[Rfam]
RNA: Group II catalytic intron D1-D4-1
Organism: Anaerosporobacter mobilis
RNA sequence: UAACCAUUGUUGUAAGGCGGUGCUGAACAUACAGAAGUCAGCAAAGGUCAUAGUAGUCGAGAGAUGAAGGGC
Numbered sequence: 001u002a003a004c005c006a007u008u009g010u011u012g013u014a015a016g017g018c019g020g021u022g023c024u025g026a027a028c029a030u031a032c033a034g035a036a037g038u039c040a041g042c043a044a045a046g047g048u049c050a051u052a053g054u055a056g057u058c059g060a061g062a063g064a065u066g067a068a069g070g071g072c
Base pairs, nucleotide, nucleotide: 001025002024005022006021007020008019009018010017011016038045047072048071049070056065057064058063